[Rfam]
RNA sequence: CAAUAAUAUGGCGAUGAGGCUCGCUAAAACUGUCACCCGACUGAUGGCCUCUACUGAGCG
Dot-bracket structure: .........[[[[..((((((]]]]......(((....)))....)))))).........
Fluoride riboswitch aptamer (crcB RNA motif): a 60-nucleotide RNA sequence from Ornatilinea apprima.
A search with the family's covariance model found it, with a score of 35 bits.
Pairs were carried over by alignment from the consensus structure, which is taken from published work.